[Rfam]
RNA: Eukaryotic large subunit ribosomal RNA, nucleotides 2362 to 2833
Organism: Fusarium kuroshium
RNA sequence: GAAGACCCUGUUGAGCUUGAUUUUAGUUUGAUAUUGUGAAAAGAUAUAGGAGGUGUAGAAUAGGUGGGAGCUUCGGCGCUGGUGAAAUACUACUACUCCUAUUGUUUUUUUACUUAUUUAAUGAAGCGGGGCUGGAUUUUCGUCUAACUUCUGGUUUUAAGGUCCUUCGCGGGCCGACCCGGGUUAAAGAUAUUGUUAGGUGGGGAGUUUAGCUGGGGCGGUAUAUCUGUUAAACUAUAACGCAGGUGUCCGAAGGCGGUCUUAUAGAGAAUAGAAAUCUCUAGUAGAGCAAAAGGGCAAAAGUCCGCUUGAUUUUGAUUUUUAGUGUGAAUAUAAACUAUAAAAGUGUAGCCUAUUGAUCCUUUAGUCCCUCGACAUUUGAGGCUAGAGGUGCUAGAAAAGUUACCAUAGGGAUAACUGGCUUAUGGCGGCUAAGCAUUUAUAGCGACGUCGCUUUUUAAUCCUUUGAUAU
Numbered sequence: 001g002a003a004g005a006c007c008c009u010g011u012u013g014a015g016c017u018u019g020a021u022u023u024u025a026g027u028u029u030g031a032u033a034u035u036g037u038g039a040a041a042a043g044a045u046a047u048a049g050g051a052g053g054u055g056u057a058g059a060a061u062a063g064g065u066g067g068g069a070g071c072u073u074c075g076g077c078g079c080u081g082g083u084g085a086a087a088u089a090c091u092a093c094u095a096c097u098c099c100u101a102u103u104g105u106u107u108u109u110u111u112a113c114u115u116a117u118u119u120a121a122u123g124a125a126g127c128g129g130g131g132c133u134g135g136a137u138u139u140u141c142g143u144c145u146a147a148c149u150u151c152u153g154g155u156u157u158u159a160a161g162g163u164c165c166u167u168c169g170c171g172g173g174c175c176g177a178c179c180c181g182g183g184u185u186a187a188a189g190a191u192a193u194u195g196u197u198a199g200g201u202g203g204g205g206a207g208u209u210u211a212g213c214u215g216g217g218g219c220g221g222u223a224u225a226u227c228u229g230u231u232a233a234a235c236u237a238u239a240a241c242g243c244a245g246g247u248g249u250c251c252g253a254a255g256g257c258g259g260u261c262u263u264a265u266a267g268a269g270a271a272u273a274g275a276a277a278u279c280u281c282u283a284g285u286a287g288a289g290c291a292a293a294a295g296g297g298c299a300a301a302a303g304u305c306c307g308c309u310u311g312a313u314u315u316u317g318a319u320u321u322u323u324a325g326u327g328u329g330a331a332u333a334u335a336a337a338c339u340a341u342a343a344a345a346g347u348g349u350a351g352c353c354u355a356u357u358g359a360u361c362c363u364u365u366a367g368u369c370c371c372u373c374g375a376c377a378u379u380u381g382a383g384g385c386u387a388g389a390g391g392u393g394c395u396a397g398a399a400a401a402g403u404u405a406c407c408a409u410a411g412g413g414a415u416a417a418c419u420g421g422c423u424u425a426u427g428g429c430g431g432c433u434a435a436g437c438a439u440u441u442a443u444a445g446c447g448a449c450g451u452c453g454c455u456u457u458u459u460a461a462u463c464c465u466u467u468g469a470u471a472u
Base pairs, nucleotide, nucleotide: 007412008411009410010409012408013407014404015403016402017401018400020208021207022206023205027200028199029198030197031196032195033194036113037112038111039110040109041108042107043106044105045104046102047101048100049099050098051097052096063094064093065092066091067090070077071076117188118187119186120185121184127181128180129179130178135144136143161175162174163173164172165171211224212222213221214220225247226246227245228244229243230242250351256308257307258306259305261303262288263287265283266282267281268280269279270278289298290297313337314336315335318332319331320330321329339348340347341346362390363389364388365387366386367385370384371383372382373381421462423460425459427455428454429453430452431451432450436446437445